[Rfam]
Glycine riboswitch aptamer: a 95-nucleotide RNA from Massilia timonae. Pairs were carried over by alignment from the consensus structure. On this family, see Mandal et al., Science 2004: "A glycine-dependent riboswitch that uses cooperative binding to control gene expression".
RNA sequence: CCGGUCAACUCUGGAGAGCGGCCGCGAUGCGGCCCACCGAAGGGGCAAGCGGCGCCAGCCGCUAUCUCUCAGGUACCAAGGACAGAGGGGUCGAU
Numbered sequence: 001c002c003g004g005u006c007a008a009c010u011c012u013g014g015a016g017a018g019c020g021g022c023c024g025c026g027a028u029g030c031g032g033c034c035c036a037c038c039g040a041a042g043g044g045g046c047a048a049g050c051g052g053c054g055c056c057a058g059c060c061g062c063u064a065u066c067u068c069u070c071a072g073g074u075a076c077c078a079a080g081g082a083c084a085g086a087g088g089g090g091u092c093g094a095u
Stems, first nucleotide, its partner, number of pairs: 006090001009087005020034004036074003039070002043068003049062002